[Rfam]
RNA sequence: GGCCUGAGCCACGUCCCUGAUAGCCAAGAGCUUUGACCAGGGAUGCUAUGAUCGGGCCUAAAUAAAGUCUUUGUUGAUGUUUCACUGUUUGAUAGGAACCUGUGCUUAUAACCAGUAUUUGCACGGAGCCGUUUUAUGUGAUUACAAUU
Dot-bracket structure: .(((((((...((((((.(.(.((.....))....).).))))))...)..))))))........................((((.........((...(((.((...............)).)))..)).......))))........

Background
Shown here is a 149-nucleotide sequence from Carex littledalei, a member of the family "Small nucleolar RNA snoR2/U65". The family is grouped with related families in Rfam's "SNORA65 clan". A reference for the family is Shaw et al. (1998), "Localization and processing from a polycistronic precursor of novel snoRNAs in maize", J Cell Sci. Rfam classes the family as an H/ACA-box small nucleolar RNA. It scores 104 bits against the family's covariance model.